[Rfam]
RNA sequence: UACACAAAGCACAUGAUGACAAGCCAUUGAAACUGACUGUAUGAAGAGCAUUCAAUCCAACACUGAGCUUUGUGUC
Numbered sequence: 001u002a003c004a005c006a007a008a009g010c011a012c013a014u015g016a017u018g019a020c021a022a023g024c025c026a027u028u029g030a031a032a033c034u035g036a037c038u039g040u041a042u043g044a045a046g047a048g049c050a051u052u053c054a055a056u057c058c059a060a061c062a063c064u065g066a067g068c069u070u071u072g073u074g075u076c
Stems, first nucleotide, its partner, number of pairs: 002075009
RNA: Small nucleolar RNA SNORD69